[Rfam]
RNA: LOOT RNA
RNA sequence: GACCUAAACUCCACGUAGUACCCAUAAAUGGUGACACGUGUAGCAUGGUCGCAAACCGUAAGCCAUAGAGAACCCGUCAUUCAGGGCGUGGCUUACGUUGCACGAGGAAACUUGUGUAGGGCCGCAAGGCCU
Numbered sequence: 001g002a003c004c005u006a007a008a009c010u011c012c013a014c015g016u017a018g019u020a021c022c023c024a025u026a027a028a029u030g031g032u033g034a035c036a037c038g039u040g041u042a043g044c045a046u047g048g049u050c051g052c053a054a055a056c057c058g059u060a061a062g063c064c065a066u067a068g069a070g071a072a073c074c075c076g077u078c079a080u081u082c083a084g085g086g087c088g089u090g091g092c093u094u095a096c097g098u099u100g101c102a103c104g105a106g107g108a109a110a111c112u113u114g115u116g117u118a119g120g121g122c123c124g125c126a127a128g129g130c131c132u
Base pairs, nucleotide, nucleotide: 001050002049003048004047009043010042012040013039014038015037057097058096059095060094061093062092063091064090065089066088073086074085075084099118100117101116102115103114104113105112106111119132120131121130122129123128